The family of this 92-nucleotide RNA from Streptomyces triculaminicus is "che1 RNA". The family's consensus secondary structure is taken from published work.

[Rfam]
RNA sequence: GGGACAGGGGGGUCCCCGCCGCCAACGGCAGGGCCUGUUCCCGCGGUUGCGCGAAGGCGUGGCCAGUGGUUGUCGCUCGGGGGUGAACGCCG
Numbered sequence: 001g002g003g004a005c006a007g008g009g010g011g012g013u014c015c016c017c018g019c020c021g022c023c024a025a026c027g028g029c030a031g032g033g034c035c036u037g038u039u040c041c042c043g044c045g046g047u048u049g050c051g052c053g054a055a056g057g058c059g060u061g062g063c064c065a066g067u068g069g070u071u072g073u074c075g076c077u078c079g080g081g082g083g084u085g086a087a088c089g090c091c092g
Stems, first nucleotide, its partner, number of pairs: 001041008014033003018029003045064008